[Rfam]
RNA sequence: GACUGCAGUGAUGACCUUAGAAAAAUUCAAGCUCAACAGACCGGAAUGCAGGGCUCUUAAUUGAGUUUUGCGUGUCGAUAACCCGCUGACUGAGCAGUC
Number, nucleotide and partner (000 for none) at each position: 001g099002a098003c097004u096005g095006c094007a000008g000009u000010g000011a000012u000013g000014a000015c000016c000017u000018u000019a000020g000021a000022a000023a000024a000025a000026u000027u000028c000029a000030a000031g000032c000033u000034c000035a000036a000037c000038a000039g000040a000041c000042c000043g000044g000045a000046a000047u000048g000049c000050a000051g000052g000053g000054c000055u000056c000057u000058u000059a000060a000061u000062u000063g000064a000065g000066u000067u000068u000069u000070g000071c000072g000073u000074g000075u000076c000077g000078a000079u000080a000081a000082c000083c000084c000085g000086c000087u000088g000089a000090c000091u000092g000093a000094g006095c005096a004097g003098u002099c001